[Rfam]
RNA sequence: GAGAGUAGGCCUCUCGAAACCGCUGUGCAGGCGGAGGUUUCAAACCACCUUAAGCUGCUGUGGUCAAAAGCCAUGGUGGUGAGCGUUAAGGAAAAGGCAAGGCUAGACCUUGUCAGGU
Numbered sequence: 001g002a003g004a005g006u007a008g009g010c011c012u013c014u015c016g017a018a019a020c021c022g023c024u025g026u027g028c029a030g031g032c033g034g035a036g037g038u039u040u041c042a043a044a045c046c047a048c049c050u051u052a053a054g055c056u057g058c059u060g061u062g063g064u065c066a067a068a069a070g071c072c073a074u075g076g077u078g079g080u081g082a083g084c085g086u087u088a089a090g091g092a093a094a095a096g097g098c099a100a101g102g103c104u105a106g107a108c109c110u111u112g113u114c115a116g117g118u
Stems, first nucleotide, its partner, number of pairs: 001015005016041006023034004046117001048091006054080002057077003061073004096114006

A member of the RNA family "Group II catalytic intron D1-D4-2" from Paenibacillus monticola, 118 nucleotides long. The pairing is the family consensus, mapped onto this sequence. The literature on the family includes a 2001 paper in Trends Genet by Bonen and Vogel, "The ins and outs of group II introns". Rfam describes the family as follows. Group II introns are found in rRNA, tRNA and mRNA of organelles in fungi, plants and protists, and also in mRNA in bacteria.